About this RNA:
The record is a 259-nucleotide part of an RNA from Halarchaeum acidiphilum, which matches "Archaeal large subunit ribosomal RNA" in Rfam. A search with the family's covariance model found it, with a score of 2828 bits. Taxonomically the source falls in Halarchaeum acidiphilum (Archaea, Methanobacteriati, Halobacteriaceae, Halarchaeum). The family's consensus secondary structure is taken from published work.
[Rfam]
RNA sequence: GAGUGUGUUUGUUUGGCGAGUCUAACCCGAGUAUCGGGGAAGGCAUAGGGAAACCGACAUGGUCGCAGCAUUGCGAGGACCGCCGUCUUCAAGGGCGGGGAGUCAGACGAACACGACCCGAAACCGAGUGAUCUACGCGUGGGCAAGGUGAAGCAUGGCGAAAGCCAUGUGGAGGCCUGUUAGGGGUGGUGUCUUACAAUACCCUCCCGUGACCUACGUGUAGGGGUGAAAGGCCCAUCGAACUCGGCAACAGCUGGUU
Numbered sequence: 001g002a003g004u005g006u007g008u009u010u011g012u013u014u015g016g017c018g019a020g021u022c023u024a025a026c027c028c029g030a031g032u033a034u035c036g037g038g039g040a041a042g043g044c045a046u047a048g049g050g051a052a053a054c055c056g057a058c059a060u061g062g063u064c065g066c067a068g069c070a071u072u073g074c075g076a077g078g079a080c081c082g083c084c085g086u087c088u089u090c091a092a093g094g095g096c097g098g099g100g101a102g103u104c105a106g107a108c109g110a111a112c113a114c115g116a117c118c119c120g121a122a123a124c125c126g127a128g129u130g131a132u133c134u135a136c137g138c139g140u141g142g143g144c145a146a147g148g149u150g151a152a153g154c155a156u157g158g159c160g161a162a163a164g165c166c167a168u169g170u171g172g173a174g175g176c177c178u179g180u181u182a183g184g185g186g187u188g189g190u191g192u193c194u195u196a197c198a199a200u201a202c203c204c205u206c207c208c209g210u211g212a213c214c215u216a217c218g219u220g221u222a223g224g225g226g227u228g229a230a231a232g233g234c235c236c237a238u239c240g241a242a243c244u245c246g247g248c249a250a251c252a253g254c255u256g257g258u259u
Stems, first nucleotide, its partner, number of pairs: 005114013020044004026038004048055002061081004068074002084097004117257002120254001124247006133223011144211001146178004153170007183208004188204002191202002225235003